[Rfam]
This 107-nucleotide RNA sequence from Populus trichocarpa belongs to the Rfam family "MIR6450 microRNA precursor family". A search with the family's covariance model found it, with a score of 78 bits. Taxonomically the source falls in Populus (Eukaryota, Embryophyta, Tracheophyta, Mesangiospermae).
RNA sequence: CAGACCCAAUUUUUUUGGGUCCCGCGUCAAGACCUAACUCGCUUGGGUCCGGCGUAAGGACCUAAUUUUCUUGGGUCUUGCAUUAGGAUCCAAGACUAAUGGGUCUU
Numbered sequence: 001c002a003g004a005c006c007c008a009a010u011u012u013u014u015u016u017g018g019g020u021c022c023c024g025c026g027u028c029a030a031g032a033c034c035u036a037a038c039u040c041g042c043u044u045g046g047g048u049c050c051g052g053c054g055u056a057a058g059g060a061c062c063u064a065a066u067u068u069u070c071u072u073g074g075g076u077c078u079u080g081c082a083u084u085a086g087g088a089u090c091c092a093a094g095a096c097u098a099a100u101g102g103g104u105c106u107u
Stems, first nucleotide, its partner, number of pairs: 002106007013095010024084001029079009043065008